Shown here is an 88-nucleotide RNA from Candidatus Kurthia intestinigallinarum, a member of the family "BsrC".
About the family: The 301 nucleotide sequence from Kouji Nakamura has been trimmed to a highly conserved ~85 nucleotide long core to form this family.
A search with the family's covariance model found it, with a score of 56 bits.
The organism belongs to Kurthia, within Bacteria.
[Rfam]
RNA sequence: UCUAACUUAAGCAACGCAAACCCUACCUGCUUUCGCGUCUCUGCAACUCCGUGGUUGCGCCAGAAUGAAUAAGUAUCUUCAAAAAUAC
Numbered sequence: 001u002c003u004a005a006c007u008u009a010a011g012c013a014a015c016g017c018a019a020a021c022c023c024u025a026c027c028u029g030c031u032u033u034c035g036c037g038u039c040u041c042u043g044c045a046a047c048u049c050c051g052u053g054g055u056u057g058c059g060c061c062a063g064a065a066u067g068a069a070u071a072a073g074u075a076u077c078u079u080c081a082a083a084a085a086u087a088c
Stems, first nucleotide, its partner, number of pairs: 036067002040063001042059007